[Rfam]
RNA sequence: UCUCGGGUCCGGGCCCCUCUGGCGGCAGCGAUCAAGCUUCCGCGAUGUCGGACUCCUUGC
Numbered sequence: 001u002c003u004c005g006g007g008u009c010c011g012g013g014c015c016c017c018u019c020u021g022g023c024g025g026c027a028g029c030g031a032u033c034a035a036g037c038u039u040c041c042g043c044g045a046u047g048u049c050g051g052a053c054u055c056c057u058u059g060c
Stems, first nucleotide, its partner, number of pairs: 006054007022043004027038003